[Rfam]
RNA sequence: CCAAUAUGGAUACCCCAGAAGGUCACUUUCUCUGGGCUCUGUUCAAGUGAUGUAGGGGAGCAUAAGACUCUACCUCAUGACGUACAGUCUCCUGCAUCACUGGAGAUGAAGCUGGGUGUUGUGUCUGCACCUGCAUAUUCCUACAACUCCUCAGAGUCCACUGGACAGUAACUGAGAAGCUGUGUAGGAAACAAUG
Numbered sequence: 001c002c003a004a005u006a007u008g009g010a011u012a013c014c015c016c017a018g019a020a021g022g023u024c025a026c027u028u029u030c031u032c033u034g035g036g037c038u039c040u041g042u043u044c045a046a047g048u049g050a051u052g053u054a055g056g057g058g059a060g061c062a063u064a065a066g067a068c069u070c071u072a073c074c075u076c077a078u079g080a081c082g083u084a085c086a087g088u089c090u091c092c093u094g095c096a097u098c099a100c101u102g103g104a105g106a107u108g109a110a111g112c113u114g115g116g117u118g119u120u121g122u123g124u125c126u127g128c129a130c131c132u133g134c135a136u137a138u139u140c141c142u143a144c145a146a147c148u149c150c151u152c153a154g155a156g157u158c159c160a161c162u163g164g165a166c167a168g169u170a171a172c173u174g175a176g177a178a179g180c181u182g183u184g185u186a187g188g189a190a191a192c193a194a195u196g
Stems, first nucleotide, its partner, number of pairs: 001103003005099001008044005014036003018029004047095001056091004060085001062083002065078001130188007147179002150176003156166004
Dot-bracket structure: (((.(..(((((.(((.((((....))))....)))...)))))..(........(((((.((.(............)...)).)..))))...)...).)))..........................(((((((..........((.(((...((((...)))).......))).))..)))))))........
Record summary: The record is a 196-nucleotide RNA sequence from Fukomys damarensis, which matches "Small nucleolar RNA SNORA73 family" in Rfam. Its Rfam clan is "snR30-U17 clan". Rfam 15.1 lists 2,326 matches to the family in 660 species. Its family is annotated with nucleolus and RNA processing in the Gene Ontology. Rfam's curators write: U17 (SNORA73A and SNORA73B) also known as E1 belongs to the H/ACA class of small nucleolar RNAs (snoRNAs). Vertebrate U17 is intron-encoded and ranges in length from 200-230 nucleotides, longer than most snoRNAs. It is one of the most abundant snoRNAs in human cells and is essential for the cleavage of pre-rRNA within the 5' external transcribed spacer (ETS). This cleavage leads to the formation of 18S rRNA. Regions of the U17 RNA are complementary to rRNA and act as guides for RNA/RNA interactions, although these regions do not seem to be well conserved between organisms. A reference for the family is Enright et al. (1996), "5'ETS rRNA processing facilitated by four small RNAs: U14, E3, U17, and U3", RNA. The source organism's lineage runs through Eukaryota, Deuterostomia, Chordata, Dipnotetrapodomorpha and Fukomys.